[Rfam]
RNA: Hepatitis C virus J7880 RNA
RNA sequence: AUUAAGCUAGCGGCCUCCAAGGUCACCGCAAGGCUCCUCACCAUGGAGGAGGCUUGCCAGUUAACCCCACCCCAUUCUGCAAGAUCUAAAUAUGGGUUUGGGGCUAAGGAGGUCCGCAGCUUG
Numbered sequence: 001a002u003u004a005a006g007c008u009a010g011c012g013g014c015c016u017c018c019a020a021g022g023u024c025a026c027c028g029c030a031a032g033g034c035u036c037c038u039c040a041c042c043a044u045g046g047a048g049g050a051g052g053c054u055u056g057c058c059a060g061u062u063a064a065c066c067c068c069a070c071c072c073c074a075u076u077c078u079g080c081a082a083g084a085u086c087u088a089a090a091u092a093u094g095g096g097u098u099u100g101g102g103g104c105u106a107a108g109g110a111g112g113u114c115c116g117c118a119g120c121u122u123g
Stems, first nucleotide, its partner, number of pairs: 006120003012114007022065002025062001028057002032053001035050005068103001070101002074097004078092002